[Rfam]
This 152-nucleotide RNA from Modestobacter caceresii belongs to the Rfam family "c-di-AMP riboswitch aptamer (ydaO/yuaA leader)". Taxonomically the source falls in Modestobacter (Bacteria, Bacillati, Actinomycetes, Geodermatophilaceae).
Nucleotides: 152
Stems, first nucleotide, its partner, number of pairs: 011137004018033005034132006044056002057117003065093004096111004
Number, partner (000 for none) and nucleotide at each position: 001000g002000a003000c004000c005000g006000g007000a008000c009000g010000c011137c012136g013135c014134c015000g016000a017000g018033u019032c020031g021030c022029c023000c024000u025000c026000c027000g028000g029022g030021g031020c032019g033018a034132g035131c036130c037129g038128g039127g040000g041000a042000c043000c044056c045055a046000c047000c048000g049000c050000a051000c052000c053000a054000c055045u056044g057117g058116g059115g060000u061000g062000a063000a064000u065093c066092c067091c068090g069000c070000a071000c072000c073000c074000g075000g076000a077000c078000g079000a080000c081000c082000g083000u084000c085000c086000g087000g088000g089000c090068c091067g092066g093065g094000u095000a096111g097110g098109g099108c100000u101000g102000c103000u104000u105000c106000c107000c108099g109098c110097c111096c112000g113000a114000a115059c116058c117057c118000g119000u120000c121000a122000g123000c124000u125000g126000a127039c128038c129037u130036g131035g132034u133000a134014g135013g136012c137011g138000g139000c140000a141000c142000u143000c144000g145000g146000a147000a148000g149000a150000c151000a152000c